[Rfam]
RNA: cspA thermoregulator
Organism: Klebsiella indica
RNA sequence: GUCAAACGAGGUACAGUUCUGUUUAUGUGUGGCAUUUUCAGUAAAGAAGUCCUGAGUAAACACGUUGUCGUUGAAUACCGCUUCUCUGCCGAACCUUAAUAUUAGUGCCUCAUGCAGUGAUGUGUCAGUUUUAUCUAUGUAAGUGCCUAAGGGCGAAGAAAACAGUCUAAGGAAUUUUGCAAAUGGCAAAGAUUAAAGGUCAAGUUAAGUGGUUCAACGAGUCUAAAGGUUUUGGUUUCAUUACUCCGGCUGAUGGCAGCAAAGAUGUGUUCGUACACUUCUCCGCUAUCCAGGGUAACGGUUUCAAAACGCUGGCUGAAGGCCAGAACGUUGAGUUCGAAAUUCAGGACGGCCAGAAAGGUCCAGCUGCAGUUAACGUAACUGCUAUCUGAUUAAGACCAAUGAAUCUUGUGAGAAAGCCUUGCGUUUGCGAGGCUUUUUAGU
Dot-bracket structure: ...(((((...........))))).....((..(.(.........(.((((((........(.((...((((((..(((...(.(.(((....(((((....((...........................))...........(((....))).............)))))......))).).).(...........)...........))))))))).)).)...))....)))))....).).))...(((.........((.....))....((.(.((.(((..((((..................)))).....)).).))).))..........)))......((..........)).(.(((((((.....))))).)).)..(((....(....))))......((((((((((((....))))))))))))...